[Rfam]
RNA sequence: UGUGCUCUUGGAGGAUGAGGCCUGAGAGUGAUCCAUCGGCAGAGUGCCCAGUGCAAUGGUGAAACUCAUGCAGCUGACGGAGCACA
Numbered sequence: 001u002g003u004g005c006u007c008u009u010g011g012a013g014g015a016u017g018a019g020g021c022c023u024g025a026g027a028g029u030g031a032u033c034c035a036u037c038g039g040c041a042g043a044g045u046g047c048c049c050a051g052u053g054c055a056a057u058g059g060u061g062a063a064a065c066u067c068a069u070g071c072a073g074c075u076g077a078c079g080g081a082g083c084a085c086a
Stems, first nucleotide, its partner, number of pairs: 002085007010075002013034004018029001036062003040058001044054003
The family of this 86-nucleotide RNA sequence from Anolis carolinensis is "Small nucleolar RNA SNORD71". A reference for the family is Huttenhofer et al. (2001), "RNomics: an experimental approach that identifies 201 candidates for novel, small, non-messenger RNAs in mouse", EMBO J. Gene Ontology terms of the family: nucleolus and RNA processing. Rfam describes the family as follows. snoRNA HBII-239 belongs to the family of C/D snoRNAs.It is the human orthologue of the mouse MBII-239 described and is predicted to guide 2'O-ribose methylation of 5.8S rRNA on residue U14. NCBI's taxonomy places the organism under Eukaryota, Sauria, Lepidosauria, Anolidae, Anolis. The base pairs follow the family's consensus structure, which was predicted with RNAalifold.